[Rfam]
The record is an 80-nucleotide RNA from Sporomusa termitida, which matches "NiCo (Nickel/Cobalt) riboswitch aptamer" in Rfam. Clan: NiCo_riboswitches. The match comes from Rfam's covariance-model search (46 bits).
RNA sequence: UAAUAAGCGUAGGAACAGGCGACCGGCUAAGCCGGUGCAGCCGGGCAGCGCAAGCAGCAGGUAAAACCUGCGGGACCUAA
Numbered sequence: 001u002a003a004u005a006a007g008c009g010u011a012g013g014a015a016c017a018g019g020c021g022a023c024c025g026g027c028u029a030a031g032c033c034g035g036u037g038c039a040g041c042c043g044g045g046c047a048g049c050g051c052a053a054g055c056a057g058c059a060g061g062u063a064a065a066a067c068c069u070g071c072g073g074g075a076c077c078u079a080a
Base pairs, nucleotide, nucleotide: 010079011078012077013076016074018042019041020040022036023035024034025033026032027031045055046054057071058070059069060068061067062066